[Rfam]
RNA sequence: UGACUAGCGGAUGCUAGAAGAAA
Numbered sequence: 001u002g003a004c005u006a007g008c009g010g011a012u013g014c015u016a017g018a019a020g021a022a023a
Stems, first nucleotide, its partner, number of pairs: 004017005
HIV-1 stem-loop 3 Psi packaging signal: a 23-nucleotide RNA from Lentivirus humimdef1.
Its family is annotated with viral RNA genome packaging in the Gene Ontology.
A reference for the family is Yu et al. (2008), "MS3D structural elucidation of the HIV-1 packaging signal", Proc Natl Acad Sci U S A.
Pairs were carried over by alignment from the consensus structure, which is taken from published work.
The family has 19 seed sequences and 25 matches in Rfam 15.1.
The family's RNA type in Rfam is cis-regulatory element.